[Rfam]
RNA: Small nucleolar RNA snoR145
RNA sequence: AUGCGAAGGUCCCAGCGGAGGGCAAGCUGCUCUUUAAUUGAGGCCUCUCUAACAUUUGAAAACAAACCUUCGCAGAAUCACUUGCCAAAUCGUACUACUCUCAGAGUUCUGUUUCUUUUCUGAGUGUCUUGAACCCUUGGCUACAUUUUU
Number, nucleotide and partner (000 for none) at each position: 001a000002u000003g073004c072005g071006a070007a069008g068009g067010u000011c000012c018013c017014a000015g000016c000017g013018g012019a000020g000021g000022g000023c000024a000025a048026g047027c000028u000029g000030c042031u041032c040033u000034u000035u000036a000037a000038u000039u000040g032041a031042g030043g000044c000045c000046u000047c026048u025049c000050u000051a000052a000053c000054a000055u000056u000057u000058g000059a000060a000061a000062a000063c000064a000065a000066a000067c009068c008069u007070u006071c005072g004073c003074a000075g000076a000077a000078u000079c000080a000081c000082u000083u000084g141085c140086c139087a138088a137089a000090u000091c000092g000093u000094a000095c000096u000097a127098c000099u000100c124101u123102c122103a121104g120105a119106g118107u000108u000109c000110u000111g000112u000113u000114u000115c000116u000117u000118u106119u105120c104121u103122g102123a101124g100125u000126g000127u097128c000129u000130u000131g000132a000133a000134c000135c000136c000137u088138u087139g086140g085141c084142u000143a000144c000145a000146u000147u000148u000149u000150u000